Rfam assigns this 135-nucleotide RNA from Galbula dea to the family "Small Cajal body specific RNA 3". For this family Rfam cites "RNomics: an experimental approach that identifies 201 candidates for novel, small, non-messenger RNAs in mouse" (Huttenhofer et al., EMBO J, 2001). Rfam 15.1 lists 642 matches to the family in 535 species. Its family is annotated with Cajal body, RNA processing and nucleolus in the Gene Ontology. By type it is a small Cajal body RNA. Pairs were carried over by alignment from the consensus structure, which was predicted with RNAalifold. Lineage of the source: Eukaryota > Archelosauria > Archosauria > Galbulidae > Galbula. scaRNAs are a specific class of small nuclear RNAs which localise to the Cajal bodies and guide the modification of RNA polymerase II transcribed spliceosomal RNAs U1, U2, U4, U5 and U12.

RNA sequence: GCUGGAAGCUGCUGGGACCAGUUGUGGGCAAAAGACAUAUGUUUUGGCCACUGUUGCAGCCUUCCUAGAGCAAAGUGGAGGUCUCUGUCUGCUUCAGGAGAGCAAACUAGAGCAGAUCGUUCCUCUCCACACACA
Number, nucleotide and partner (000 for none) at each position: 001g000002c000003u000004g065005g064006a063007a000008g060009c059010u058011g057012c056013u000014g000015g000016g000017a000018c000019c000020a000021g000022u000023u000024g051025u050026g049027g048028g000029c046030a000031a000032a000033a000034g043035a042036c041037a000038u000039a000040u000041g036042u035043u034044u000045u000046g029047g000048c027049c026050a025051c024052u000053g000054u000055u000056g012057c011058a010059g009060c008061c000062u000063u006064c005065c004066u000067a000068g000069a000070g000071c000072a000073a000074a000075g000076u000077g128078g127079a126080g125081g124082u000083c000084u000085c119086u000087g117088u116089c115090u000091g113092c112093u111094u110095c000096a108097g107098g000099a000100g000101a000102g000103c000104a000105a000106a000107c097108u096109a000110g094111a093112g092113c091114a000115g089116a088117u087118c000119g085120u000121u000122c000123c000124u081125c080126u079127c078128c077129a000130c000131a000132c000133a000134c000135a000